RNA sequence: GUUUCCGUCCCCUUGCGGGGAAGAGAUAAGGAAUGAC
Numbered sequence: 001g002u003u004u005c006c007g008u009c010c011c012c013u014u015g016c017g018g019g020g021a022a023g024a025g026a027u028a029a030g031g032a033a034u035g036a037c
Stems, first nucleotide, its partner, number of pairs: 006025001008021005
Dot-bracket structure: .....(.(((((....)))))...)............

The family of this 37-nucleotide RNA from Leptolyngbya sp. 'hensonii' is "CRISPR RNA direct repeat element".
Rfam 15.1 lists 366 matches to the family in 23 species.
It scores 39 bits against the family's covariance model.